[Rfam]
RNA sequence: CCCGCGGAAGGACGGAAAGACCCCGUGAACCUUUACUGCAGCUUGACAUUGGCUGCCGGUUCGUCGUGUAGAGGAUAGGUGGGAGACUGUGAACUGGAGACGCCAGUCUUCAGGGAGUCACCCUUGGAAUACCACCCUCGACGUUUCGGCAUCCUAACCCUUCGCCGUAAUCCGGGAAGGGGACCGUGUCAGGUGGGUAGUUUGACUGGGGCGGUCGCCUCCUAAAAUGUAACGGAGGCGCACGUAAGGUCUGCUCAGGAUGGUCGGCAAUCAUCCUUUUGAGUGCAAGAGCAUAAGCAGGCUUAACUGCGAGACAAACAAGUCGAGCAGAUGGGAAACCAGGUUCUAGUGAUCCGGCGGCUCAGAGUGGAAUGGCCGUCGCUCAACGGAUAAAAGGUACUCCGGGGAUAACAGGCUGAUCUUCCCCAAGAGUCCACAUCGACGGGAAGGUUUGGCACCUCGAUGUCGGCUCAUCGCAUCCUGGGGCUGGAGCAGGUCCCAAGGGUAUGGCUGUUCGCCAUUUAAAGCGGUACGCGAGCUGGGUUCAGAACGUCGUGAGACAGUUCGGUCCCUAUCCUCCGUGGGCGUA
Numbered sequence: 001c002c003c004g005c006g007g008a009a010g011g012a013c014g015g016a017a018a019g020a021c022c023c024c025g026u027g028a029a030c031c032u033u034u035a036c037u038g039c040a041g042c043u044u045g046a047c048a049u050u051g052g053c054u055g056c057c058g059g060u061u062c063g064u065c066g067u068g069u070a071g072a073g074g075a076u077a078g079g080u081g082g083g084a085g086a087c088u089g090u091g092a093a094c095u096g097g098a099g100a101c102g103c104c105a106g107u108c109u110u111c112a113g114g115g116a117g118u119c120a121c122c123c124u125u126g127g128a129a130u131a132c133c134a135c136c137c138u139c140g141a142c143g144u145u146u147c148g149g150c151a152u153c154c155u156a157a158c159c160c161u162u163c164g165c166c167g168u169a170a171u172c173c174g175g176g177a178a179g180g181g182g183a184c185c186g187u188g189u190c191a192g193g194u195g196g197g198u199a200g201u202u203u204g205a206c207u208g209g210g211g212c213g214g215u216c217g218c219c220u221c222c223u224a225a226a227a228u229g230u231a232a233c234g235g236a237g238g239c240g241c242a243c244g245u246a247a248g249g250u251c252u253g254c255u256c257a258g259g260a261u262g263g264u265c266g267g268c269a270a271u272c273a274u275c276c277u278u279u280u281g282a283g284u285g286c287a288a289g290a291g292c293a294u295a296a297g298c299a300g301g302c303u304u305a306a307c308u309g310c311g312a313g314a315c316a317a318a319c320a321a322g323u324c325g326a327g328c329a330g331a332u333g334g335g336a337a338a339c340c341a342g343g344u345u346c347u348a349g350u351g352a353u354c355c356g357g358c359g360g361c362u363c364a365g366a367g368u369g370g371a372a373u374g375g376c377c378g379u380c381g382c383u384c385a386a387c388g389g390a391u392a393a394a395a396g397g398u399a400c401u402c403c404g405g406g407g408a409u410a411a412c413a414g415g416c417u418g419a420u421c422u423u424c425c426c427c428a429a430g431a432g433u434c435c436a437c438a439u440c441g442a443c444g445g446g447a448a449g450g451u452u453u454g455g456c457a458c459c460u461c462g463a464u465g466u467c468g469g470c471u472c473a474u475c476g477c478a479u480c481c482u483g484g485g486g487c488u489g490g491a492g493c494a495g496g497u498c499c500c501a502a503g504g505g506u507a508u509g510g511c512u513g514u515u516c517g518c519c520a521u522u523u524a525a526a527g528c529g530g531u532a533c534g535c536g537a538g539c540u541g542g543g544u545u546c547a548g549a550a551c552g553u554c555g556u557g558a559g560a561c562a563g564u565u566c567g568g569u570c571c572c573u574a575u576c577c578u579c580c581g582u583g584g585g586c587g588u589a
Stems, first nucleotide, its partner, number of pairs: 001585008010577003014572002022406004027402002029398005035201004042193007051154002054151006062143005068137001078136005085119003094113008158181003162178001165175003204216004217239006240387001242344002249302006255282002258276006283292002307330004313324003332341003355381007363374002415456003419453001420450007430440002467542001468540004472534001473531005480505002483500006507521005548566004552561003

About this RNA:
The family of this 589-nucleotide part of an RNA from Fannyhessea vaginae is "Bacterial large subunit ribosomal RNA". The organism belongs to Fannyhessea vaginae, within Bacteria.